[Rfam]
The record is a 120-nucleotide RNA from Zea mays, which matches "U5 spliceosomal RNA" in Rfam. Pairs were carried over by alignment from the consensus structure, which is taken from published work.
RNA sequence: AGCUGCGCAGUGGGCACAAAGCGAACUAUUCUUUCGCCUUUUACUAAAGAAUACCGUGUGUCCGCUGCAAUAAGCAGCAUACGCCAACAAGUCAAUUUAGGUUUUGUUUGAAUUAAAUUU
Dot-bracket structure: ..((((.(((((((((((........((((((((...........))))))))...)))))))))))......)))).....................(.(.((((.......)))).))